Rfam assigns this 109-nucleotide sequence from Rhododendron simsii to the family "Small nucleolar RNA snoR97". It is annotated as an H/ACA-box small nucleolar RNA. A search with the family's covariance model found it, with a score of 90 bits. Rfam 15.1 lists 862 matches to the family in 223 species.
[Rfam]
RNA sequence: AAUAAUUUGUGGGUGUAGGGCCUGAAAAAACUCGUAGAUUUUGUGUUGUUUAUCAGCUUCUUCUCUUGCUAAUGCCACGAGGAUGGAGUUAAAUCACAACACAACAUUC
Numbered sequence: 001a002a003u004a005a006u007u008u009g010u011g012g013g014u015g016u017a018g019g020g021c022c023u024g025a026a027a028a029a030a031c032u033c034g035u036a037g038a039u040u041u042u043g044u045g046u047u048g049u050u051u052a053u054c055a056g057c058u059u060c061u062u063c064u065c066u067u068g069c070u071a072a073u074g075c076c077a078c079g080a081g082g083a084u085g086g087a088g089u090u091a092a093a094u095c096a097c098a099a100c101a102c103a104a105c106a107u108u109c
Stems, first nucleotide, its partner, number of pairs: 042103007055090006062082004